[Rfam]
RNA sequence: CUGCCAGUAAGGCAAAAUCUGCUUAACCUACAAAUGUUUUGCAGAAGAUCAUUGCUGGCAAUACUAAUGCCCGAGUACGAGCCUUGAAGACUUUGUUGUCAUUGAGGUCCCAAUAAAGGCCACAUUG
Number, nucleotide and partner (000 for none) at each position: 001c000002u000003g059004c058005c057006a056007g055008u000009a000010a000011g000012g000013c000014a000015a000016a000017a000018u045019c044020u043021g042022c041023u000024u000025a000026a000027c000028c000029u000030a000031c000032a000033a000034a000035u000036g000037u000038u000039u000040u000041g022042c021043a020044g019045a018046a000047g000048a000049u000050c000051a000052u000053u000054g000055c007056u006057g005058g004059c003060a000061a000062u000063a000064c000065u000066a000067a000068u000069g120070c119071c118072c000073g000074a000075g000076u000077a000078c000079g000080a000081g108082c107083c106084u105085u104086g103087a102088a000089g100090a099091c098092u000093u000094u000095g000096u000097u000098g091099u090100c089101a000102u087103u086104g085105a084106g083107g082108u081109c000110c000111c000112a000113a000114u000115a000116a000117a000118g071119g070120c069121c000122a000123c000124a000125u000126u000127g000
Shown here is a 127-nucleotide sequence from Laticauda laticaudata, a member of the family "Small nucleolar RNA SNORA33". The family has 28 seed sequences and 1,176 matches in Rfam 15.1. From the family's description: ACA33 is a member of the H/ACA class of snoRNA that guide the sites of modification of uridines to pseudouridines. The base pairs follow the family's consensus structure, which was predicted with PFOLD. Rfam classes the family as an H/ACA-box small nucleolar RNA. NCBI's taxonomy places the organism under Eukaryota, Opisthokonta, Craniata, Sarcopterygii, Laticauda.